[Rfam]
RNA sequence: GGAGCCAUAGGGAGGGAUACCAAUCCAACCUUAGGAAAAGAAACCUGCCACAGGAGUCUUGGCGAUUGACAACUGUCCUAAUGAUUUA
Numbered sequence: 001g002g003a004g005c006c007a008u009a010g011g012g013a014g015g016g017a018u019a020c021c022a023a024u025c026c027a028a029c030c031u032u033a034g035g036a037a038a039a040g041a042a043a044c045c046u047g048c049c050a051c052a053g054g055a056g057u058c059u060u061g062g063c064g065a066u067u068g069a070c071a072a073c074u075g076u077c078c079u080a081a082u083g084a085u086u087u088a
Stems, first nucleotide, its partner, number of pairs: 002087003006083003010079004015074002018071001021068005029062002038060004044054004
RNA: mir-9014 microRNA precursor family
Organism: Equus asinus